Shown here is a 104-nucleotide RNA from Vogesella sp. LIG4, a member of the family "Vibrio RNA AS9". The literature on the family includes a 2009 paper in Nucleic Acids Res by Liu et al., "Experimental discovery of sRNAs in Vibrio cholerae by direct cloning, 5S/tRNA depletion and parallel sequencing". Pairs were carried over by alignment from the consensus structure, which was predicted with RNAfold. By type it is an antisense RNA. Rfam describes the family as follows. Identified by direct cloning an parallel sequencing experiments with 5S/tRNA depletion. Confirmed by Northern blot.
Nucleotides: 104
Stems, first nucleotide, its partner, number of pairs: 003058001005056003010027006035050002039047001041045001066104002069101002071096002075092003078088003
Number, partner (000 for none) and nucleotide at each position: 001000c002000u003058g004000u005056u006055u007054g008000c009000a010027g011026c012025g013024c014023u015022c016000u017000u018000c019000g020000g021000u022015g023014a024013g025012c026011g027010u028000g029000a030000g031000g032000c033000a034000g035050a036049u037000c038000a039047g040000g041045c042000c043000a044000c045041g046000g047039c048000c049036g050035u051000a052000c053000u054007u055006g056005g057000c058003c059000a060000u061000g062000a063000a064000g065000u066104u067103g068000a069101u070100g071096g072095c073000u074000u075092c076091c077090g078088g079087c080086g081000u082000c083000a084000c085000g086080u087079g088078c089000u090077c091076g092075g093000c094000g095072g096071c097000c098000a099000u100070u101069a102000c103067c104066a